RNA sequence: CUACUCCCUCCUUCCCAUAUAUAAGAGUGUUUUUAAUACUACACUAGUGUGAAAAACAUUCUUAUAUUAUGGGACGGAGGAGUU
Dot-bracket structure: ..(.(.(((((.(((((.((((((((((((((((.(((((.....))))).))))))))))))))))..))))).))))).).)
The family of this 84-nucleotide RNA sequence from Hordeum vulgare is "MIR1120/MIR1122 microRNA precursor family". A reference for the family is Yao et al. (2007), "Cloning and characterization of microRNAs from wheat (Triticum aestivum L.)", Genome Biol. Its family is annotated with RISC complex and miRNA-mediated post-transcriptional gene silencing in the Gene Ontology. Rfam's curators put it in the seed alignment.